[Rfam]
RNA sequence: UACUCGUCGACUGGAGAGAGGUUGGCCUAGACCCAACCCACCGAAGGGGCAAUGCAGUUCUCUGCACAAACUCUCAGGUAGCCGGACAGAGGGAGAGAC
Numbered sequence: 001u002a003c004u005c006g007u008c009g010a011c012u013g014g015a016g017a018g019a020g021g022u023u024g025g026c027c028u029a030g031a032c033c034c035a036a037c038c039c040a041c042c043g044a045a046g047g048g049g050c051a052a053u054g055c056a057g058u059u060c061u062c063u064g065c066a067c068a069a070a071c072u073c074u075c076a077g078g079u080a081g082c083c084g085g086a087c088a089g090a091g092g093g094a095g096a097g098a099c
Stems, first nucleotide, its partner, number of pairs: 007093002011089003020038004040079003043075002047073003053066005

This 99-nucleotide RNA from Thiohalocapsa marina belongs to the Rfam family "Glycine riboswitch aptamer". Rfam's curators write: This family represents the bacterial glycine riboswitch. Glycine riboswitches usually consist of two metabolite-binding aptamers domains with similar structures in tandem. Lineage of the source: Bacteria > Pseudomonadati > Pseudomonadota > Gammaproteobacteria > Thiohalocapsa.